[Rfam]
RNA sequence: CUGAAUUGUUGCCGAGGCAGGCAUAAGCCUGGGGAUUACCUGCAUUAGCAGGCAGUUGCACUGAGUGCAUCACUGACACCCCGUAAUACCUCAACUGCACCCGCUCUGGCGCACAGGCAACUUUCA
Numbered sequence: 001c002u003g004a005a006u007u008g009u010u011g012c013c014g015a016g017g018c019a020g021g022c023a024u025a026a027g028c029c030u031g032g033g034g035a036u037u038a039c040c041u042g043c044a045u046u047a048g049c050a051g052g053c054a055g056u057u058g059c060a061c062u063g064a065g066u067g068c069a070u071c072a073c074u075g076a077c078a079c080c081c082c083g084u085a086a087u088a089c090c091u092c093a094a095c096u097g098c099a100c101c102c103g104c105u106c107u108g109g110c111g112c113a114c115a116g117g118c119a120a121c122u123u124u125c126a
Stems, first nucleotide, its partner, number of pairs: 002126004008121006018031005032082003039052005053075004057069005
This 126-nucleotide sequence belongs to the Rfam family "EFASI RNA". The sequence is in the family's curated seed alignment. The base pairs follow the family's consensus structure, which is taken from published work. It is annotated as a small RNA.